RNA sequence: UCCGGGGCCGCCCACGAAAUAUCCCCCAAACCCCGCUAGGUCCGGAAGGAAGCAACGGUAGGGGGACGCUUCGGUGCGCGAUCCGCCCCGGUUUUC
Numbered sequence: 001u002c003c004g005g006g007g008c009c010g011c012c013c014a015c016g017a018a019a020u021a022u023c024c025c026c027c028a029a030a031c032c033c034c035g036c037u038a039g040g041u042c043c044g045g046a047a048g049g050a051a052g053c054a055a056c057g058g059u060a061g062g063g064g065g066a067c068g069c070u071u072c073g074g075u076g077c078g079c080g081a082u083c084c085g086c087c088c089c090g091g092u093u094u095u096c
Base pairs, nucleotide, nucleotide: 004089005088006087007086008085009080010079011078013074015073016072017071018070020068022066023065024064025063026062027061033058034057035056041050042049043048
Rfam assigns this 96-nucleotide sequence from Treponema pallidum to the family "Bacterial small signal recognition particle RNA". It is annotated as a non-coding RNA gene. The family is grouped with related families in Rfam's "SRP clan". Pairs were carried over by alignment from the consensus structure, which is taken from published work. The source organism's lineage runs through Bacteria, Treponematales, Treponemataceae, Treponema and Treponema pallidum subsp. pallidum.